[Rfam]
RNA: Bacterial large signal recognition particle RNA
Organism: Mammaliicoccus stepanovicii
RNA sequence: CCGUGCUAAGUGGGGAGGUAGCGGUUCCCUGUACUUGAAAUCCGCUUAUGCAGGACUGAAUUCCUUUGCCGCGGACAUAUUAUUGUGAGGUCUGCCCUCAGCACGUGGUGUCUGAAGACGUCGGUCCUAUGCAAUACAAACCCAUGAAUCAUGUCAGGUCCGGAAGGAAGCAGCAUUAAGUGGAUCAUUGUAUGUGCCGUAGGGUUGCCGAGGUUUAGCUAACGACUGAGGUUACGCUUGUGGUGUUUGUUCAAAGCAAAGGUGCACGG
Number, nucleotide and partner (000 for none) at each position: 001c269002c268003g267004u266005g265006c264007u000008a000009a057010g056011u055012g030013g029014g028015g027016a026017g025018g000019u023020a000021g000022c000023g019024g000025u017026u016027c015028c014029c013030u012031g000032u000033a000034c054035u053036u052037g051038a000039a049040a000041u000042c000043c000044g000045c000046u000047u000048a000049u039050g000051c037052a036053g035054g034055a011056c010057u009058g000059a000060a000061u000062u000063c262064c261065u260066u259067u258068g257069c256070c000071g000072c000073g252074g251075a250076c249077a248078u000079a000080u000081u245082a244083u243084u242085g241086u240087g239088a238089g237090g000091u000092c000093u000094g232095c000096c000097c230098u229099c228100a227101g226102c000103a000104c000105g223106u222107g220108g219109u218110g000111u000112c000113u000114g000115a000116a000117g215118a214119c213120g000121u211122c210123g209124g208125u207126c203127c202128u201129a200130u199131g198132c194133a193134a000135u192136a191137c190138a189139a188140a185141c000142c183143c182144a181145u180146g000147a000148a000149u000150c000151a176152u175153g174154u173155c000156a000157g000158g000159u168160c167161c166162g000163g000164a000165a000166g161167g160168a159169a000170g000171c000172a000173g154174c153175a152176u151177u000178a000179a000180g145181u144182g143183g142184a000185u140186c000187a000188u139189u138190g137191u136192a135193u133194g132195u000196g000197c000198c131199g130200u129201a128202g127203g126204g000205u000206u000207g125208c124209c123210g122211a121212g000213g119214u118215u117216u000217a000218g109219c108220u107221a000222a106223c105224g000225a000226c101227u100228g099229a098230g097231g000232u094233u000234a000235c000236g000237c089238u088239u087240g086241u085242g084243g083244u082245g081246u000247u000248u077249g076250u075251u074252c073253a000254a000255a000256g069257c068258a067259a066260a065261g064262g063263u000264g006265c005266a004267c003268g002269g001